The record is a 197-nucleotide RNA sequence from Clostridium sp. CAG:590, which matches "Lysine riboswitch aptamer" in Rfam. The match comes from Rfam's covariance-model search (100 bits). The source organism's lineage runs through Bacteria, Bacillati, Eubacteriales, Clostridiaceae and Clostridium.
RNA sequence: UCGAUGUGUAGAGGCGCAUGUGUCAAGAGUAACAGUUUGGACAGAUAAGGAUGGAUGAAGAAUUGUGAAAGGGGCUCAUGCCGAAGAGGAUGAUCACCUUAUCGGUCAUUUAUCUGGAUGUGCAGUUAAGAGCUGUAUGUCUGUCACCGAUAGAGGAUUUCAGAUAAGCAGGAAUCAGGUGGAGUGCUACGGAAAGA
Numbered sequence: 001u002c003g004a005u006g007u008g009u010a011g012a013g014g015c016g017c018a019u020g021u022g023u024c025a026a027g028a029g030u031a032a033c034a035g036u037u038u039g040g041a042c043a044g045a046u047a048a049g050g051a052u053g054g055a056u057g058a059a060g061a062a063u064u065g066u067g068a069a070a071g072g073g074g075c076u077c078a079u080g081c082c083g084a085a086g087a088g089g090a091u092g093a094u095c096a097c098c099u100u101a102u103c104g105g106u107c108a109u110u111u112a113u114c115u116g117g118a119u120g121u122g123c124a125g126u127u128a129a130g131a132g133c134u135g136u137a138u139g140u141c142u143g144u145c146a147c148c149g150a151u152a153g154a155g156g157a158u159u160u161c162a163g164a165u166a167a168g169c170a171g172g173a174a175u176c177a178g179g180u181g182g183a184g185u186g187c188u189a190c191g192g193a194a195a196g197a
Stems, first nucleotide, its partner, number of pairs: 007191005016081005022075003032066007085115003088111008116142011144182005